[Rfam]
RNA sequence: UUAGGUUUUCUUCAUUUUCUUUUGAAAUUUGUCUGGAUUCUUGUUGUUGAAGGUUGAUAGAGAUGAUAUGAAGAUGAAGAAGAGGAGGAG
Number, nucleotide and partner (000 for none) at each position: 001u000002u000003a000004g000005g000006u083007u082008u081009u080010c079011u078012u077013c076014a075015u074016u073017u072018u071019c070020u000021u000022u000023u000024g000025a000026a000027a000028u000029u000030u000031g000032u000033c000034u000035g000036g055037a054038u053039u052040c000041u050042u049043g000044u000045u000046g000047u000048u000049g042050a041051a000052g039053g038054u037055u036056g000057a000058u000059a000060g000061a000062g000063a000064u000065g000066a000067u000068a000069u000070g019071a018072a017073g016074a015075u014076g013077a012078a011079g010080a009081a008082g007083a006084g000085g000086a000087g000088g000089a000090g000
Shown here is a 90-nucleotide RNA from Medicago truncatula, a member of the family "MIR5298 microRNA precursor family". The source organism's lineage runs through Eukaryota, Tracheophyta, Fabales, Fabaceae and Medicago.